[Rfam]
RNA: SAM riboswitch aptamer (S box leader)
Organism: Flavobacterium pallidum
RNA sequence: AAGUUAUCACGAAAGGCAGAGGGAUUAGACCCGUUGAAGCCUUAGCAACCCUUUACCUAUAAAGAAGGUGCUACAUUCUACCGGUUUCCGGAUAGAUAACAA
Dot-bracket structure: ..((((((....(((((...(((..[[[[)))......)))))((((.((((((......))))..))))))...(]]]]((((...))))..)))))))..